[Rfam]
RNA: SAM riboswitch aptamer (S box leader)
Organism: Brevibacillus panacihumi
RNA sequence: CUCUUAUAGAGAGAGGUAGAGGGACUGGCCCAAUGAAACCUCGGCAACCUAUCCAUGCGGAUAUGGUGCCAAUUCCAGCGGAAAUCAUUCCGGAAGAUAAGAG
Number, nucleotide and partner (000 for none) at each position: 001c103002u102003c101004u100005u099006a098007u097008a000009g000010a000011g000012a000013g042014a041015g040016g039017u038018a000019g000020a000021g031022g030023g029024a000025c078026u077027g076028g075029c023030c022031c021032a000033a000034u000035g000036a000037a000038a017039c016040c015041u014042c013043g070044g069045c068046a067047a000048c066049c065050u000051a062052u061053c060054c059055a000056u000057g000058c000059g054060g053061a052062u051063a000064u000065g049066g048067u046068g045069c044070c043071a000072a000073u000074u095075c028076c027077a026078g025079c092080g091081g090082a089083a088084a000085u000086c000087a000088u083089u082090c081091c080092g079093g000094a000095a074096g000097a007098u006099a005100a004101g003102a002103g001